[Rfam]
RNA sequence: AUACUCACGUAAUCGCUGUAUAUUUAGUAUGCAGAGGAAAGUCCAUGCUCACACAAGCUGAGACGUUUGUAGUGUUCGUGCCUGACGAAAUCAUAAGUCAGGAUAACCUAAUUGGGUUAAUGGCAGUGGAAAAUCCUAACUCUUAUGACAUGGAUUAAUACACUUGAAAGUGCCACAGUGACGUAGUCGGAAUGGAAACAUUCCGAGUGGAACGAGGUAAACCCCACGAGUGAGCAACCCAAAUAUUGGUAGGGGCAUCCUUGAUUAGGGAAAUUGAACCGAAAAAGGGACAAGUAAUUUAUUGCUUGUAGAUAGAUGAUUACGACCAACGUACAAGGUUGACCACCGUUUGAGUACAUUGGAACAGAACAUGGCUUACCGAG
Dot-bracket structure: ...(((.(((((((.((((((.......))))))....[[[.[[[[[(((((((((((......)))))).....(((((((((((..........))))))(((((((....)))))).)((.((((....((((....((....))...)))).....)))).....(((((............((((((((....)))))))).........)))..))))))))))))))...(((...........)))...(((((......................)))))((((((((....))))))))........))))))).((((.((((...................)))).)))).......]]]]]]]]...)))